Shown here is a 120-nucleotide RNA from Ixodes scapularis, a member of the family "U4 spliceosomal RNA". The base pairs follow the family's consensus structure, which is taken from published work. Rfam describes the family as follows. U4 small nuclear RNA (U4 snRNA) is a component of the major U2-dependent spliceosome. The organism belongs to Ixodes, within Eukaryota. The match comes from Rfam's covariance-model search (75 bits).
RNA sequence: AGCUUUGCGCAGAGGCAGUGUCGUACUCGAGGAAGGCAACUGAGGGGCGACUAUGCUAGUUGAAAACUUUUCCCAAUACCCCGCCGGACGUCGUGCAAUACCGACGGCCAUGGCAAUUUU
Numbered sequence: 001a002g003c004u005u006u007g008c009g010c011a012g013a014g015g016c017a018g019u020g021u022c023g024u025a026c027u028c029g030a031g032g033a034a035g036g037c038a039a040c041u042g043a044g045g046g047g048c049g050a051c052u053a054u055g056c057u058a059g060u061u062g063a064a065a066a067c068u069u070u071u072c073c074c075a076a077u078a079c080c081c082c083g084c085c086g087g088a089c090g091u092c093g094u095g096c097a098a099u100a101c102c103g104a105c106g107g108c109c110a111u112g113g114c115a116a117u118u119u120u
Stems, first nucleotide, its partner, number of pairs: 020051005026046003034041002083114003086109002089106005
Dot-bracket structure: ...................(((((.(((.....((....))..))))))))...............................(((((.(((((........))))).))..)))......